A member of the RNA family "BsrG" from Paenibacillus montaniterrae, 244 nucleotides long.
NCBI's taxonomy places the organism under Bacteria, Bacilli, Caryophanales, Paenibacillaceae, Paenibacillus.
Pairs were carried over by alignment from the consensus structure, which was predicted with WAR.
Rfam 15.1 lists 614 matches to the family in 343 species.
By type it is a small RNA.
Rfam links the family to the GO terms toxin activity and autolysis.
RNA sequence: GCAAUAGAAUAGGCUUAUUUGGGCGGUCGGCUACCUCUCUACAGAAGGGAGGGAUGCCUGAUGACAGUUUUUGAAGCACUAAUAUUAAUGCUUACCUUUGGUACGCUUAUUGUGAUGAUACUGUCCUCGAAAGACAAAUAGACCGCCCCAGGAAGGAAUCGGUCUAUUUGAUCUAUAUUCCAGAUUAAAGCCUACCGCCCUUAAAAGCGGCUAUUGCAGAGGGAGUCGUGUUACCGCACGGCUC
Numbered sequence: 001g002c003a004a005u006a007g008a009a010u011a012g013g014c015u016u017a018u019u020u021g022g023g024c025g026g027u028c029g030g031c032u033a034c035c036u037c038u039c040u041a042c043a044g045a046a047g048g049g050a051g052g053g054a055u056g057c058c059u060g061a062u063g064a065c066a067g068u069u070u071u072u073g074a075a076g077c078a079c080u081a082a083u084a085u086u087a088a089u090g091c092u093u094a095c096c097u098u099u100g101g102u103a104c105g106c107u108u109a110u111u112g113u114g115a116u117g118a119u120a121c122u123g124u125c126c127u128c129g130a131a132a133g134a135c136a137a138a139u140a141g142a143c144c145g146c147c148c149c150a151g152g153a154a155g156g157a158a159u160c161g162g163u164c165u166a167u168u169u170g171a172u173c174u175a176u177a178u179u180c181c182a183g184a185u186u187a188a189a190g191c192c193u194a195c196c197g198c199c200c201u202u203a204a205a206a207g208c209g210g211c212u213a214u215u216g217c218a219g220a221g222g223g224a225g226u227c228g229u230g231u232u233a234c235c236g237c238a239c240g241g242c243u244c
Stems, first nucleotide, its partner, number of pairs: 001217005007211001011193006018151002021148008034053002037051004063125006076091003101116002195210004223244009